A member of the RNA family "THF (Tetrahydrofolate) riboswitch aptamer" from Eubacterium callanderi, 93 nucleotides long. The family has 101 seed sequences and 747 matches in Rfam 15.1. Rfam describes the family as follows. Tetrahydrofolate (THF) riboswitch was first reported for Ames et al. as an RNA motif in 5' untranslated (5'-UTR)regions of folate transport and biosynthesis genes in Firmicutes genomes.
[Rfam]
RNA sequence: AACAGAGUAGAUAAGACGCGUGAAGUGUUAAAGGAUGGGAAGUUGCCUUUAAACGAAAAUAGGUCAUUGCGGUGUCUUAUCGCUUCCGCUGUG
Numbered sequence: 001a002a003c004a005g006a007g008u009a010g011a012u013a014a015g016a017c018g019c020g021u022g023a024a025g026u027g028u029u030a031a032a033g034g035a036u037g038g039g040a041a042g043u044u045g046c047c048u049u050u051a052a053a054c055g056a057a058a059a060u061a062g063g064u065c066a067u068u069g070c071g072g073u074g075u076c077u078u079a080u081c082g083c084u085u086c087c088g089c090u091g092u093g
Base pairs, nucleotide, nucleotide: 002092003091004090005089010081011080012079013078014077015076016075017074018073019071020070021069025054026053028052029051030050031049032048033047034046038087039086040085041084042083058068059067060066
Dot-bracket structure: .((((....((((((((((((...((.(((((((...[[[[[...)))))))))...(((.....)))))).))))))))).]]]]].)))).